[Rfam]
RNA sequence: GACCCUGAUGAUGAUGAACACAAUAACUUUCGUUCUCCUGAGGCUAUGAAUGCUGAAAAUCAUUGGAGACCUGAACUGAAGGGUU
Dot-bracket structure: ..((((.........................................................................))))..
Overview:
Shown here is an 85-nucleotide RNA sequence from Cucumis sativus, a member of the family "Small nucleolar RNA Z159/U59". It scores 68 bits against the family's covariance model.